Background:
This 86-nucleotide sequence from Schistosoma haematobium belongs to the Rfam family "Selenocysteine transfer RNA".
RNA sequence: GCCGGGAUGAACCACGGUGGUCCGGGGUGCAGGCUUCAAACUUGUAGCCGGUUGGUGUUGAAGCGGUUCGAUUCCGCCUUCCUGGC
Numbered sequence: 001g002c003c004g005g006g007a008u009g010a011a012c013c014a015c016g017g018u019g020g021u022c023c024g025g026g027g028u029g030c031a032g033g034c035u036u037c038a039a040a041c042u043u044g045u046a047g048c049c050g051g052u053u054g055g056u057g058u059u060g061a062a063g064c065g066g067u068u069c070g071a072u073u074c075c076g077c078c079u080u081c082c083u084g085g086c
Base pairs, nucleotide, nucleotide: 001086002085003084004083005082006081007080009078012027013026015024016023017022028046029045030044031043032042033041049060050059051058052057063077064076065075066074
The family's consensus secondary structure is taken from published work.